RNA sequence: AGUACAUACGGAAAGAUUUGGCGCUUGUCGUUGCUCGAGCUGCUGGUGAUGCCGGUCCCAGUGCGAACGUGACGUUUUGAUGCGCUUCAUCGAUGACAACGGGCUUCAUUUCAAUGGCUGGCGUUUUCAACGCCGAAGGCCUUGACAUAUGUUGCGAGUUUCCGUCUGGUGGCUCCAAGGCAACCGCAAUUGGAACAAGUGCCUAUAUCUACCCUUUGACAACGGGCGGUGGCAUAAGAAGCGAGAACCAGGUCUGGGACCCAUCUUGAGUUGGUGUCAAAGCUUCGCGCUUGUCUGGACCUGGAAACUCUGGUGGAUUAUGUCCCAUCUGGAGUCGGGGAUUCGAGAAGGAUUUGCUGUGUUCCUGAUUUGCAGGCUUGCCAUAUAUUUUUGGAACUUUUGGGCAGAUUUAUCGCCCUUGGUUGUCCUCUCAUUUCCCUUGAGGGAAUCGGGAGGGCAACCCCUCUCUUUGAGAGG
Numbered sequence: 001a002g003u004a005c006a007u008a009c010g011g012a013a014a015g016a017u018u019u020g021g022c023g024c025u026u027g028u029c030g031u032u033g034c035u036c037g038a039g040c041u042g043c044u045g046g047u048g049a050u051g052c053c054g055g056u057c058c059c060a061g062u063g064c065g066a067a068c069g070u071g072a073c074g075u076u077u078u079g080a081u082g083c084g085c086u087u088c089a090u091c092g093a094u095g096a097c098a099a100c101g102g103g104c105u106u107c108a109u110u111u112c113a114a115u116g117g118c119u120g121g122c123g124u125u126u127u128c129a130a131c132g133c134c135g136a137a138g139g140c141c142u143u144g145a146c147a148u149a150u151g152u153u154g155c156g157a158g159u160u161u162c163c164g165u166c167u168g169g170u171g172g173c174u175c176c177a178a179g180g181c182a183a184c185c186g187c188a189a190u191u192g193g194a195a196c197a198a199g200u201g202c203c204u205a206u207a208u209c210u211a212c213c214c215u216u217u218g219a220c221a222a223c224g225g226g227c228g229g230u231g232g233c234a235u236a237a238g239a240a241g242c243g244a245g246a247a248c249c250a251g252g253u254c255u256g257g258g259a260c261c262c263a264u265c266u267u268g269a270g271u272u273g274g275u276g277u278c279a280a281a282g283c284u285u286c287g288c289g290c291u292u293g294u295c296u297g298g299a300c301c302u303g304g305a306a307a308c309u310c311u312g313g314u315g316g317a318u319u320a321u322g323u324c325c326c327a328u329c330u331g332g333a334g335u336c337g338g339g340g341a342u343u344c345g346a347g348a349a350g351g352a353u354u355u356g357c358u359g360u361g362u363u364c365c366u367g368a369u370u371u372g373c374a375g376g377c378u379u380g381c382c383a384u385a386u387a388u389u390u391u392u393g394g395a396a397c398u399u400u401u402g403g404g405c406a407g408a409u410u411u412a413u414c415g416c417c418c419u420u421g422g423u424u425g426u427c428c429u430c431u432c433a434u435u436u437c438c439c440u441u442g443a444g445g446g447a448a449u450c451g452g453g454a455g456g457g458c459a460a461c462c463c464c465u466c467u468c469u470u471u472g473a474g475a476g477g
Base pairs, nucleotide, nucleotide: 258278259277260276261274262273263272280292281291282290283289